[Rfam]
RNA sequence: GAGUGUGUAGGAGAGGUUUUUCUUAAACAGUGGACACGAGGAAACACUUGAUUAAGUAAAACUUAGAA
Number, nucleotide and partner (000 for none) at each position: 001g000002a000003g000004u000005g000006u000007g000008u000009a000010g000011g000012a000013g000014a064015g063016g062017u061018u060019u059020u000021u000022c056023u055024u000025a000026a000027a000028c050029a049030g047031u046032g045033g000034a000035c000036a000037c000038g000039a000040g000041g000042a000043a000044a000045c032046a031047c030048u000049u029050g028051a000052u000053u000054a000055a023056g022057u000058a000059a019060a018061a017062c016063u015064u014065a000066g000067a000068a000
The record is a 68-nucleotide RNA, which matches "Cyano-1 RNA" in Rfam. The family's RNA type in Rfam is small RNA. Rfam 15.1 lists 283 matches to the family in 194 species.